[Rfam]
RNA sequence: AAAAAGGGUGUUUGUCGCUUAGAUGGCACGCGUGCCGCGAGGUGCGCGGGGUAUGGCCAUCAAGACAUACCCAACACGUCAUUUUUGGAACGGAGAGGCAGUUGGCUACCCUCAUGUACCGGCGCCUCC
Numbered sequence: 001a002a003a004a005a006g007g008g009u010g011u012u013u014g015u016c017g018c019u020u021a022g023a024u025g026g027c028a029c030g031c032g033u034g035c036c037g038c039g040a041g042g043u044g045c046g047c048g049g050g051g052u053a054u055g056g057c058c059a060u061c062a063a064g065a066c067a068u069a070c071c072c073a074a075c076a077c078g079u080c081a082u083u084u085u086u087g088g089a090a091c092g093g094a095g096a097g098g099c100a101g102u103u104g105g106c107u108a109c110c111c112u113c114a115u116g117u118a119c120c121g122g123c124g125c126c127u128c129c
Stems, first nucleotide, its partner, number of pairs: 008077005013028005029048008049072007096127004101123005107118003
Rfam assigns this 129-nucleotide RNA sequence from Helicoverpa armigera to the family "U11 spliceosomal RNA". The match comes from Rfam's covariance-model search (87 bits). The family is grouped with related families in Rfam's "U1 clan". The organism belongs to Helicoverpa, within Eukaryota. Gene Ontology terms of the family: pre-mRNA 5'-splice site binding, mRNA 5'-splice site recognition and U11 snRNP.